[Rfam]
RNA sequence: GGCAUGGGGAUCGCGAUCUCCCCACGAGGCGACAGCUGAAGAAUCGCGUCCUGGCCAUUUAGAAGGACGCAUCAUG
Numbered sequence: 001g002g003c004a005u006g007g008g009g010a011u012c013g014c015g016a017u018c019u020c021c022c023c024a025c026g027a028g029g030c031g032a033c034a035g036c037u038g039a040a041g042a043a044u045c046g047c048g049u050c051c052u053g054g055c056c057a058u059u060u061a062g063a064a065g066g067a068c069g070c071a072u073c074a075u076g
Stems, first nucleotide, its partner, number of pairs: 005024006046070006
RNA: chrB-a RNA